Shown here is a 106-nucleotide RNA from Anisodus acutangulus, a member of the family "Small nucleolar RNA snoR97". The organism belongs to Anisodus, within Eukaryota. The family's consensus secondary structure was predicted with WAR. On this family, see Marker et al., Curr Biol 2002: "Experimental RNomics: identification of 140 candidates for small non-messenger RNAs in the plant Arabidopsis thaliana".

[Rfam]
RNA sequence: CUUCAAACUUAGGUGUAGGGUCUGAUAAACUCAUAAAGUUUAGUGCUGUCAUCAACUUCUUAUUUUGUACUUACAUUUUUGGAGUCAAACUAACAGCACUAUAUUU
Numbered sequence: 001c002u003u004c005a006a007a008c009u010u011a012g013g014u015g016u017a018g019g020g021u022c023u024g025a026u027a028a029a030c031u032c033a034u035a036a037a038g039u040u041u042a043g044u045g046c047u048g049u050c051a052u053c054a055a056c057u058u059c060u061u062a063u064u065u066u067g068u069a070c071u072u073a074c075a076u077u078u079u080u081g082g083a084g085u086c087a088a089a090c091u092a093a094c095a096g097c098a099c100u101a102u103a104u105u106u
Stems, first nucleotide, its partner, number of pairs: 042100007055085005062077001064075001